[Rfam]
RNA sequence: UGCGUGUGGUGCCUACCCCCCGAGGGCAUCGCCCGCAGCGGCCCCGGCUGUUCCCCCCCAGCCGGGGCCGCACCGU
Number, nucleotide and partner (000 for none) at each position: 001u000002g036003c035004g034005u000006g032007u031008g030009g029010u028011g027012c026013c025014u000015a000016c000017c000018c000019c000020c000021c000022g000023a000024g000025g013026g012027c011028a010029u009030c008031g007032c006033c000034c004035g003036c002037a000038g071039c070040g069041g068042c067043c066044c065045c064046g063047g062048c061049u060050g000051u000052u000053c000054c000055c000056c000057c000058c000059c000060a049061g048062c047063c046064g045065g044066g043067g042068c041069c040070g039071c038072a000073c000074c000075g000076u000
About this RNA: Rfam assigns this 76-nucleotide RNA from Nostocoides australiense to the family "6C RNA". By type it is a cis-regulatory element. The match comes from Rfam's covariance-model search (49 bits). A reference for the family is Weinberg et al. (2007), "Identification of 22 candidate structured RNAs in bacteria using the CMfinder comparative genomics pipeline", Nucleic Acids Res. Taxonomically the source falls in Nostocoides australiense (Bacteria, Bacillati, Actinomycetota, Intrasporangiaceae). Pairs were carried over by alignment from the consensus structure, which is taken from published work. Rfam links the family to the GO term sporulation.